Shown here is a 66-nucleotide RNA sequence from Bacillus sp. 165, a member of the family "Bacillus-plasmid RNA".
Rfam 15.1 lists 155 matches to the family in 128 species.
The family's consensus secondary structure is taken from published work.
It scores 58 bits against the family's covariance model.
The source organism's lineage runs through Bacteria, Bacillota, Bacilli, Caryophanales and Bacillus.
RNA sequence: CAAGUCAACGGUACCGGACUGAGCGUUUUGUGCGAAGGAGGAUAAGGAGUUGACUUGAUAGGAAAA
Numbered sequence: 001c002a003a004g005u006c007a008a009c010g011g012u013a014c015c016g017g018a019c020u021g022a023g024c025g026u027u028u029u030g031u032g033c034g035a036a037g038g039a040g041g042a043u044a045a046g047g048a049g050u051u052g053a054c055u056u057g058a059u060a061g062g063a064a065a066a
Stems, first nucleotide, its partner, number of pairs: 001057009